The record is a 62-nucleotide sequence from Anoxybacillus ayderensis, which matches "RAGATH-18 RNA" in Rfam. Actinobacteria, Firmicutes, Fusobacteria, Thermotogae (1 example). The family's consensus secondary structure is taken from published work. Lineage of the source: Bacteria > Bacillati > Bacillota > Anoxybacillaceae > Anoxybacillus ayderensis.

RNA sequence: CCUCUGGAGUGCUAUACCAAACGAGAGUAGCUUUGGCGAAAUCGGGCACGAUGAACAAGGAA
Numbered sequence: 001c002c003u004c005u006g007g008a009g010u011g012c013u014a015u016a017c018c019a020a021a022c023g024a025g026a027g028u029a030g031c032u033u034u035g036g037c038g039a040a041a042u043c044g045g046g047c048a049c050g051a052u053g054a055a056c057a058a059g060g061a062a
Base pairs, nucleotide, nucleotide: 001060002059003058009049010048011047012046013045022044023043024042030037031036